RNA: c-di-GMP-I riboswitch aptamer
RNA sequence: AAAUUUCAAAGGCAAAGUUGCAGAAAUGUAAUGGCGCAAAGCUAGAAGUCUACGGUACAAUUUAUGUUACUAAGAUAGUUCGGUUGCAAUG
Numbered sequence: 001a002a003a004u005u006u007c008a009a010a011g012g013c014a015a016a017g018u019u020g021c022a023g024a025a026a027u028g029u030a031a032u033g034g035c036g037c038a039a040a041g042c043u044a045g046a047a048g049u050c051u052a053c054g055g056u057a058c059a060a061u062u063u064a065u066g067u068u069a070c071u072a073a074g075a076u077a078g079u080u081c082g083g084u085u086g087c088a089a090u091g
Stems, first nucleotide, its partner, number of pairs: 012037002017032006040085004045081003048076003055070003